Rfam assigns this 120-nucleotide RNA sequence from Pseudoxanthomonas sp. CF125 to the family "Xanthomonadaceae sRNA Xoo5".

RNA sequence: CCAUGAAGAUGAACACCCACCUGCACGCAUGCGCCGCCCGGAUGGCCUCGGGAAUGACGUCUCGUGCCCGCCGACCGGAACCGCUUAUCUAGCUGGGUCGCCGGACGUUACUGCUUGUUC
Number, nucleotide and partner (000 for none) at each position: 001c000002c000003a000004u000005g000006a000007a000008g000009a000010u000011g000012a000013a000014c000015a000016c000017c000018c000019a000020c000021c000022u000023g000024c000025a000026c000027g000028c117029a116030u000031g114032c113033g112034c000035c107036g106037c000038c104039c103040g076041g075042a000043u073044g072045g071046c070047c000048u000049c000050g000051g068052g067053a000054a065055u064056g063057a000058c000059g000060u000061c000062u000063c056064g055065u054066g000067c052068c051069c000070g046071c045072c044073g043074a000075c041076c040077g102078g101079a000080a000081c000082c097083g000084c095085u000086u092087a000088u000089c000090u000091a000092g086093c000094u000095g084096g000097g082098u000099c000100g000101c078102c077103g039104g038105a000106c036107g035108u000109u000110a000111c000112u033113g032114c031115u000116u029117g028118u000119u000120c000
About this RNA:
Lineage of the source: Bacteria > Pseudomonadati > Pseudomonadota > Lysobacteraceae > Pseudoxanthomonas. The base pairs follow the family's consensus structure, which was predicted with RNAalifold.